The family of this 69-nucleotide RNA sequence from Burkholderia plantarii is "Fluoride riboswitch aptamer (crcB RNA motif)". Gene Ontology terms of the family: response to fluoride and positive regulation of gene expression. The family's consensus secondary structure is taken from published work. The organism belongs to Burkholderia, within Bacteria.

RNA sequence: CCGCGCUUCGGAGAUGGCAUGCCUCCGCCCCCAACCGCCGGUCAGCCGGCUGAUGAUGCCUACGGAUCC
Number, nucleotide and partner (000 for none) at each position: 001c000002c000003g000004c000005g000006c000007u000008u000009c000010g026011g025012a024013g023014a000015u000016g060017g059018c058019a057020u056021g000022c000023c013024u012025c011026c010027g000028c000029c000030c000031c000032c000033a000034a000035c000036c000037g050038c049039c048040g047041g000042u000043c000044a000045g000046c000047c040048g039049g038050c037051u000052g000053a000054u000055g000056a020057u019058g018059c017060c016061u000062a000063c000064g000065g000066a000067u000068c000069c000